This 187-nucleotide sequence from Otolemur garnettii belongs to the Rfam family "U11 spliceosomal RNA". A search with the family's covariance model found it, with a score of 75 bits. On this family, see Schneider et al., Proc Natl Acad Sci U S A 2004: "Identification of an evolutionarily divergent U11 small nuclear ribonucleoprotein particle in Drosophila".
RNA sequence: AAAAGGGGCUGCACAUAUAUUUGAUUAAGAACCACCAUAGAUGUAAUUCCUUGAUUUUAUUUAAAAAUGUCCCCCUACACACAUGGGGCAACUCAGCUGCUCUUCGUGCAGAAUUGACAUCAAGAGAUUUCGGAAGCAUAAUUUUUUGGUACCUGGGUAGCUGGUGAUGGUUGGUCCCAGCGCCCAU
Number, nucleotide and partner (000 for none) at each position: 001a000002a000003a000004a000005g000006g000007g000008g137009c136010u135011g000012c133013a000014c000015a000016u000017a000018u000019a000020u000021u000022u000023g000024a000025u000026u000027a000028a000029g000030a000031a000032c000033c000034a000035c000036c000037a000038u000039a000040g000041a000042u000043g000044u000045a000046a000047u000048u000049c000050c000051u000052u000053g000054a000055u000056u000057u000058u000059a000060u000061u000062u000063a000064a000065a000066a000067a000068u000069g000070u000071c000072c000073c000074c000075c000076u000077a000078c000079a000080c108081a107082c106083a000084u000085g103086g102087g101088g100089c099090a098091a000092c000093u000094c000095a000096g000097c000098u090099g089100c088101u087102c086103u085104u000105c000106g082107u081108g080109c132110a000111g130112a129113a128114u127115u126116g000117a000118c000119a000120u000121c000122a000123a000124g000125a000126g115127a114128u113129u112130u111131c000132g109133g012134a000135a010136g009137c008138a000139u000140a000141a000142u000143u000144u000145u000146u000147u000148g000149g000150u000151a000152c000153c000154u000155g185156g184157g183158u182159a000160g181161c180162u179163g178164g177165u000166g176167a175168u174169g000170g000171u000172u000173g000174g168175u167176c166177c164178c163179a162180g161181c160182g158183c157184c156185c155186a000187u000